[Rfam]
RNA sequence: CUACUUCCUCCGUCUCAUAAUAUAAGAGCGUUUUUCACACUAGUAUAGUGUAAAAAACGUUUUUAUAUAAUGGGACGGAGGGAGUAC
Numbered sequence: 001c002u003a004c005u006u007c008c009u010c011c012g013u014c015u016c017a018u019a020a021u022a023u024a025a026g027a028g029c030g031u032u033u034u035u036c037a038c039a040c041u042a043g044u045a046u047a048g049u050g051u052a053a054a055a056a057a058c059g060u061u062u063u064u065a066u067a068u069a070a071u072g073g074g075a076c077g078g079a080g081g082g083a084g085u086a087c
Base pairs, nucleotide, nucleotide: 003085004084005083007081008080009079010078011077013075014074015073016072017071020068021067022066023065024064025063026062027061028060029059030058031057032056033055034054035053037051038050039049040048041047

Shown here is an 87-nucleotide sequence from Triticum aestivum, a member of the family "MIR1120/MIR1122 microRNA precursor family". A reference for the family is Yao et al. (2007), "Cloning and characterization of microRNAs from wheat (Triticum aestivum L.)", Genome Biol. It scores 87 bits against the family's covariance model. The family's consensus secondary structure was predicted with RNAalifold.